A member of the RNA family "cow-rumen-2 RNA", 105 nucleotides long.
The base pairs follow the family's consensus structure, which is taken from published work.

[Rfam]
RNA sequence: AGCGACGUAUAGAUUAGCAAUCUAUACAUAUAGCCGCCAUGGCUUGACAUGAUAUAGCCGAAGUACAGGAUGACCGCCUCGUAAGCAUGUCAGUAAGUCCCAAGA
Numbered sequence: 001a002g003c004g005a006c007g008u009a010u011a012g013a014u015u016a017g018c019a020a021u022c023u024a025u026a027c028a029u030a031u032a033g034c035c036g037c038c039a040u041g042g043c044u045u046g047a048c049a050u051g052a053u054a055u056a057g058c059c060g061a062a063g064u065a066c067a068g069g070a071u072g073a074c075c076g077c078c079u080c081g082u083a084a085g086c087a088u089g090u091c092a093g094u095a096a097g098u099c100c101c102a103a104g105a
Stems, first nucleotide, its partner, number of pairs: 002077001007027007040102001041100002043097002045092007059081003064076001068075002